[Rfam]
RNA: Group II catalytic intron D1-D4-6
Nucleotides: 241
Stems, first nucleotide, its partner, number of pairs: 011036001013034003018030004037089001039087001043084004047079002049074003053070001055068002059064001125232003129228001145226006151176003156170004181220003186215002189212003
Number, partner (000 for none) and nucleotide at each position: 001000a002000a003000a004000g005000u006000c007000c008000c009000a010000u011036c012000a013034u014033a015032g016000a017000a018030g019029g020028u021027u022000a023000g024000c025000c026000a027021g028020a029019c030018c031000a032015c033014u034013a035000c036011g037089u038000g039087g040000c041000g042000a043084g044083u045082c046081u047079u048078g049074u050073g051072u052000g053070u054000a055068c056067g057000g058000c059064g060000g061000c062000a063000a064059c065000a066000a067056u068055g069000g070053a071000a072051a073050c074049g075000a076000a077000g078048c079047g080000u081046a082045g083044a084043c085000a086000a087039c088000g089037a090000a091000a092000c093000a094000u095000u096000c097000g098000a099000g100000c101000c102000g103000g104000a105000a106000u107000c108000u109000a110000a111000u112000g113000a114000u115000g116000a117000a118000c119000g120000u121000g122000a123000u124000a125232g126231c127230u128000c129228c130000a131000a132000a133000a134000u135000a136000c137000a138000u139000c140000a141000g142000c143000u144000c145226g146225u147224g148223u149222g150221u151176g152175c153174c154000g155000a156170u157169a158168g159167u160000u161000a162000g163000u164000c165000c166000a167159g168158c169157u170156a171000g172000c173000a174153g175152g176151c177000a178000a179000c180000a181220g182219u183218u184000a185000c186215u187214g188000a189212a190211u191210g192000c193000a194000c195000a196000u197000a198000c199000u200000g201000g202000c203000a204000a205000a206000u207000a208000u209000c210191c211190a212189u213000a214187c215186a216000a217000c218183a219182a220181c221150a222149c223148a224147u225146a226145c227000c228129g229000a230127a231126g232125c233000c234000g235000c236000a237000g238000g239000c240000g241000c